[Rfam]
RNA sequence: UCUUUUCAGGCCUAGUAACCAAUGGUGAAAGCAGUAGAAUAGGAUAGAAGGAGAAUAUGACCUUCCGGAAAGGUAAAUAUAUGCACUGAUGCGUUUGGGCGGACGCUUCUUGCAUGGUGCAGGUUAAAGGUUAUCCUGCAUUUCAUGCCCAGUAACGCUAUGCUGCUAUUAAGAAAACCUGUACUGCAGUACGGUGCAUUUUUUGUUGUAAUGAACAGU
Numbered sequence: 001u002c003u004u005u006u007c008a009g010g011c012c013u014a015g016u017a018a019c020c021a022a023u024g025g026u027g028a029a030a031g032c033a034g035u036a037g038a039a040u041a042g043g044a045u046a047g048a049a050g051g052a053g054a055a056u057a058u059g060a061c062c063u064u065c066c067g068g069a070a071a072g073g074u075a076a077a078u079a080u081a082u083g084c085a086c087u088g089a090u091g092c093g094u095u096u097g098g099g100c101g102g103a104c105g106c107u108u109c110u111u112g113c114a115u116g117g118u119g120c121a122g123g124u125u126a127a128a129g130g131u132u133a134u135c136c137u138g139c140a141u142u143u144c145a146u147g148c149c150c151a152g153u154a155a156c157g158c159u160a161u162g163c164u165g166c167u168a169u170u171a172a173g174a175a176a177a178c179c180u181g182u183a184c185u186g187c188a189g190u191a192c193g194g195u196g197c198a199u200u201u202u203u204u205g206u207u208g209u210a211a212u213g214a215a216c217a218g219u
Base pairs, nucleotide, nucleotide: 004038005037006036019025065073066072081199082198083197084196085195086194087193088192090191091158092157093156094155095154096151097150098149099148100147105113106112116142117141118140119139120138121137122136162190163189164188165187166186
This 219-nucleotide RNA sequence belongs to the Rfam family "RT-2 RNA".
It is annotated as a small RNA.